[Rfam]
The family of this 85-nucleotide sequence from Oxyruncus cristatus is "Small nucleolar RNA SNORD74".
The family's consensus secondary structure was predicted with PFOLD.
The organism belongs to Oxyruncus, within Eukaryota.
On this family, see Galardi et al., Mol Cell Biol 2002: "Purified box C/D snoRNPs are able to reproduce site-specific 2'-O-methylation of target RNA in vitro".
It is annotated as a C/D-box small nucleolar RNA.
RNA sequence: UAUGCCCGCACAUGAUGAGAACUGCGUUGGUAGGGACAUCUGAGAGAGUGAUUGAUGAAUGCCAACGUGUAUCUGAGCUUGCGGG
Number, nucleotide and partner (000 for none) at each position: 001u085002a000003u083004g082005c081006c000007c000008g000009c000010a000011c000012a000013u000014g000015a000016u000017g000018a000019g000020a000021a000022c000023u000024g000025c000026g000027u000028u000029g000030g000031u000032a000033g000034g000035g000036a000037c000038a000039u000040c000041u000042g000043a000044g000045a000046g000047a000048g000049u000050g000051a000052u000053u000054g000055a000056u000057g000058a000059a000060u000061g000062c000063c000064a000065a000066c000067g000068u000069g000070u000071a000072u000073c000074u000075g000076a000077g000078c000079u000080u000081g005082c004083g003084g000085g001